[Rfam]
RNA sequence: AUAUUAAUAAAUGACUCUACUCAUAUAAAUUAAAGGAUAUGGCUUUAGCGUUUCUACCACGUUACCGUAAAUGACGUGACUAUGAGUAAUAAUAGUUGUAUG
Numbered sequence: 001a002u003a004u005u006a007a008u009a010a011a012u013g014a015c016u017c018u019a020c021u022c023a024u025a026u027a028a029a030u031u032a033a034a035g036g037a038u039a040u041g042g043c044u045u046u047a048g049c050g051u052u053u054c055u056a057c058c059a060c061g062u063u064a065c066c067g068u069a070a071a072u073g074a075c076g077u078g079a080c081u082a083u084g085a086g087u088a089a090u091a092a093u094a095g096u097u098g099u100a101u102g
Base pairs, nucleotide, nucleotide: 018088019087020086021085022084023083024082025081030048031047032046033045034044035043058078059077060076061075062074063073064072

A member of the RNA family "Purine riboswitch aptamer" from Macrococcus sp. DPC7161, 102 nucleotides long. Pairs were carried over by alignment from the consensus structure, which is taken from published work. Gene Ontology term of the family: purine nucleobase biosynthetic process.